RNA: Group II catalytic intron D1-D4-6
Organism: Desulfonema magnum
RNA sequence: AAAGUCCCCGUCAGGUAAGGUCUGGCCAGCCACCUGUACCGAGUGUUGCGUCCGGUCAGGACAGACAUACCGUCGAACGACCCGGACGAAGCGUACACAGGGAAUCAUGCAGGCCACAGGGGGAACGGCGCUCCCCUGAAGCAUGGUACAGCAUCGUAAAGAGUAAAAAUGCAGACGGCGACGUUUUUAACGCAACGGAAGCCGACACUAUGGAAUCGUCAGUUCCUUUGCGAAGCCUGCUUCAGCGUUGAACAGGUGAGAUUCCGGAGGGUCUGCCGGUGUCAUCAGGGCG
Dot-bracket structure: ...........((((...(((.......))).))))..((..(((((((((((((...(..................)...)))))))...)).)))).)).................................................((((((..............(((((((((..((((........))))...)))....((.(((((((..........................................))))))).).)))))))))))))..........
Numbered sequence: 001a002a003a004g005u006c007c008c009c010g011u012c013a014g015g016u017a018a019g020g021u022c023u024g025g026c027c028a029g030c031c032a033c034c035u036g037u038a039c040c041g042a043g044u045g046u047u048g049c050g051u052c053c054g055g056u057c058a059g060g061a062c063a064g065a066c067a068u069a070c071c072g073u074c075g076a077a078c079g080a081c082c083c084g085g086a087c088g089a090a091g092c093g094u095a096c097a098c099a100g101g102g103a104a105u106c107a108u109g110c111a112g113g114c115c116a117c118a119g120g121g122g123g124a125a126c127g128g129c130g131c132u133c134c135c136c137u138g139a140a141g142c143a144u145g146g147u148a149c150a151g152c153a154u155c156g157u158a159a160a161g162a163g164u165a166a167a168a169a170u171g172c173a174g175a176c177g178g179c180g181a182c183g184u185u186u187u188u189a190a191c192g193c194a195a196c197g198g199a200a201g202c203c204g205a206c207a208c209u210a211u212g213g214a215a216u217c218g219u220c221a222g223u224u225c226c227u228u229u230g231c232g233a234a235g236c237c238u239g240c241u242u243c244a245g246c247g248u249u250g251a252a253c254a255g256g257u258g259a260g261a262u263u264c265c266g267g268a269g270g271g272u273c274u275g276c277c278g279g280u281g282u283c284a285u286c287a288g289g290g291c292g
Stems, first nucleotide, its partner, number of pairs: 012036004019031003039101002043098004047093002049088007059078001151282006171276006177203003182197004208270001209268001211266007